[Rfam]
RNA sequence: GCAACUCUGGAAAGCGGGCGCGUUCGCCAGACGCGCCUCACCGACGGUGCAAGCCCCUGUCCGAGCCAGGGGUGAAGCUCUCAGGUCGCGGCCGACGCGCCGCGAUGACAGAGGGGGAGUC
Numbered sequence: 001g002c003a004a005c006u007c008u009g010g011a012a013a014g015c016g017g018g019c020g021c022g023u024u025c026g027c028c029a030g031a032c033g034c035g036c037c038u039c040a041c042c043g044a045c046g047g048u049g050c051a052a053g054c055c056c057c058u059g060u061c062c063g064a065g066c067c068a069g070g071g072g073u074g075a076a077g078c079u080c081u082c083a084g085g086u087c088g089c090g091g092c093c094g095a096c097g098c099g100c101c102g103c104g105a106u107g108a109c110a111g112a113g114g115g116g117g118a119g120u121c
Stems, first nucleotide, its partner, number of pairs: 002116001005113005016038009040086003043082002047080001049078001053073007
RNA: Glycine riboswitch aptamer